[Rfam]
mir-219 microRNA precursor family: a 77-nucleotide RNA sequence from Scaptodrosophila lebanonensis.
RNA sequence: UUUAGCUAUGAUUGUCCAAACGCAAUUCUUGUUUGAUUUCAAAUAUUCAAGGGUUGCGACUGGGCAUCGCGGCUCGA
Numbered sequence: 001u002u003u004a005g006c007u008a009u010g011a012u013u014g015u016c017c018a019a020a021c022g023c024a025a026u027u028c029u030u031g032u033u034u035g036a037u038u039u040c041a042a043a044u045a046u047u048c049a050a051g052g053g054u055u056g057c058g059a060c061u062g063g064g065c066a067u068c069g070c071g072g073c074u075c076g077a
Stems, first nucleotide, its partner, number of pairs: 002076001004074004009069004014065005021058011
Pairs were carried over by alignment from the consensus structure, which was predicted with RNAalifold.